[Rfam]
RNA: MIR396 microRNA precursor family
RNA sequence: UGUCAUGCUUUUCCACAGCUUUCUUGAACUUCAUUCUUCAGCUGAAUGCUGGUCUCUUGGCUUUGGUUAGGGGGGAUGGAGAUCAUCCAUUUCUGCAUUGAAGUCCAAGAAAGCUGUGGGAAAACAUGCCAA
Numbered sequence: 001u002g003u004c005a006u007g008c009u010u011u012u013c014c015a016c017a018g019c020u021u022u023c024u025u026g027a028a029c030u031u032c033a034u035u036c037u038u039c040a041g042c043u044g045a046a047u048g049c050u051g052g053u054c055u056c057u058u059g060g061c062u063u064u065g066g067u068u069a070g071g072g073g074g075g076a077u078g079g080a081g082a083u084c085a086u087c088c089a090u091u092u093c094u095g096c097a098u099u100g101a102a103g104u105c106c107a108a109g110a111a112a113g114c115u116g117u118g119g120g121a122a123a124a125c126a127u128g129c130c131a132a
Stems, first nucleotide, its partner, number of pairs: 004128004013119003017115006024108003029103005